[Rfam]
RNA sequence: AAACUUACCUGGCUGGGGGGUUCCCGUGAUCAUCAAGACGGGACCCCUAUGGCGAGGCUUGGCCAUUGCACUUCUCGGCCGGGCUGACCUGUAAGGCAGCUCCGAGUUGGGGUUCGCCUACAGCUAAAUUUUGAGUCAGGGGCUGCGUUCGCGCGGCCCUGAA
Number, nucleotide and partner (000 for none) at each position: 001a000002a000003a000004c000005u000006u000007a000008c000009c000010u000011g000012g124013c123014u122015g121016g048017g047018g046019g045020g044021u043022u000023c042024c041025c040026g039027u038028g000029a000030u000031c000032a000033u000034c000035a000036a000037g000038a027039c026040g025041g024042g023043a021044c020045c019046c018047c017048u016049a092050u091051g090052g089053c000054g088055a000056g085057g084058c083059u000060u081061g080062g079063c078064c077065a000066u000067u000068g000069c000070a000071c000072u000073u000074c000075u000076c000077g064078g063079c062080c061081g060082g000083g058084c057085u056086g000087a000088c054089c052090u051091g050092u049093a000094a119095g118096g117097c000098a114099g113100c000101u110102c109103c000104g000105a000106g000107u000108u000109g102110g101111g000112g000113u099114u098115c000116g000117c096118c095119u094120a000121c015122a014123g013124c012125u000126a000127a000128a000129u000130u000131u000132u000133g000134a000135g000136u162137c161138a160139g159140g158141g000142g157143c000144u155145g154146c153147g152148u000149u000150c000151g000152c147153g146154c145155g144156g000157c142158c140159c139160u138161g137162a136163a000
Shown here is a 163-nucleotide RNA from Mesorhabditis spiculigera, a member of the family "U1 spliceosomal RNA". By type it is a spliceosomal small nuclear RNA. It scores 119 bits against the family's covariance model.